[Rfam]
RNA sequence: CAGGACUCCGUUGUGCUUGAUCUAACCAUGUGGUUUGAAAUUUACUCAUGGUUGUGCCAAGCACCCUGGAGGCUUG
Dot-bracket structure: ((((.((((...(((((((....(((((((................)))))))....)))))))...)))).))))
Shown here is a 76-nucleotide sequence from Scleropages formosus, a member of the family "mir-218 microRNA precursor family". The literature on the family includes a 2005 paper in Genes Dev by Chen et al., "The developmental miRNA profiles of zebrafish as determined by small RNA cloning". It scores 73 bits against the family's covariance model. The family has 74 seed sequences and 1,392 matches in Rfam 15.1.